[Rfam]
RNA sequence: GGAGACAAGUAGAAGCACCCGCUUCUCACCUGAUUGACGCCAUUGUAGGUAGUUGACUGGUUCCAAACUUACUUUUGAUUGGAAACGUGUGGGUGCAGUGUGUGUACCGACACUUUUUUAAUGAG
Numbered sequence: 001g002g003a004g005a006c007a008a009g010u011a012g013a014a015g016c017a018c019c020c021g022c023u024u025c026u027c028a029c030c031u032g033a034u035u036g037a038c039g040c041c042a043u044u045g046u047a048g049g050u051a052g053u054u055g056a057c058u059g060g061u062u063c064c065a066a067a068c069u070u071a072c073u074u075u076u077g078a079u080u081g082g083a084a085a086c087g088u089g090u091g092g093g094u095g096c097a098g099u100g101u102g103u104g105u106a107c108c109g110a111c112a113c114u115u116u117u118u119u120a121a122u123g124a125g
Base pairs, nucleotide, nucleotide: 011026012025013024014023015022016021028061029060030059036054037053038052039050040049088112089111090110092108093107094106095105096104097103
Rfam assigns this 125-nucleotide RNA from Oceanobacillus halophilus to the family "Ribosomal protein L20 leader".
The family's RNA type in Rfam is cis-regulatory leader.
The organism belongs to Oceanobacillus, within Bacteria.
Its family is annotated with regulation of gene expression in the Gene Ontology.
The match comes from Rfam's covariance-model search (70 bits).
Pairs were carried over by alignment from the consensus structure, which was predicted with CMfinder.